[Rfam]
RNA sequence: UUAAAGACUAUGAACAGGGCAAGUACUUAGUUUUCUUUGUUUUUAGAGAGUAACUGGUUGGUGGAAAGUUACAACAAGAAUUAAGGAAAAUCACCUGGGAGUUGGAGGCUGAAAUUAAUAAUAUAGUAAGCUUUUCCCGUGUUCUUGCGUUAAAGGAUAAAGUAUGUUAGUACUUGAUUUAAUACUACUUCGCAUAAAGUCGUUGAAAUUUAGAAGUAGUUCGAACCUAAAGGUGGGAUUGCGAAUAUAACUUCGUCCGUUAG
Numbered sequence: 001u002u003a004a005a006g007a008c009u010a011u012g013a014a015c016a017g018g019g020c021a022a023g024u025a026c027u028u029a030g031u032u033u034u035c036u037u038u039g040u041u042u043u044u045a046g047a048g049a050g051u052a053a054c055u056g057g058u059u060g061g062u063g064g065a066a067a068g069u070u071a072c073a074a075c076a077a078g079a080a081u082u083a084a085g086g087a088a089a090a091u092c093a094c095c096u097g098g099g100a101g102u103u104g105g106a107g108g109c110u111g112a113a114a115u116u117a118a119u120a121a122u123a124u125a126g127u128a129a130g131c132u133u134u135u136c137c138c139g140u141g142u143u144c145u146u147g148c149g150u151u152a153a154a155g156g157a158u159a160a161a162g163u164a165u166g167u168u169a170g171u172a173c174u175u176g177a178u179u180u181a182a183u184a185c186u187a188c189u190u191c192g193c194a195u196a197a198a199g200u201c202g203u204u205g206a207a208a209u210u211u212a213g214a215a216g217u218a219g220u221u222c223g224a225a226c227c228u229a230a231a232g233g234u235g236g237g238a239u240u241g242c243g244a245a246u247a248u249a250a251c252u253u254c255g256u257c258c259g260u261u262a263g
Stems, first nucleotide, its partner, number of pairs: 007102002015097004026085006039075003050072006104136002106133005138149003187217004230260001232258002241256005
RNA: T-box leader
Organism: Clostridium intestinale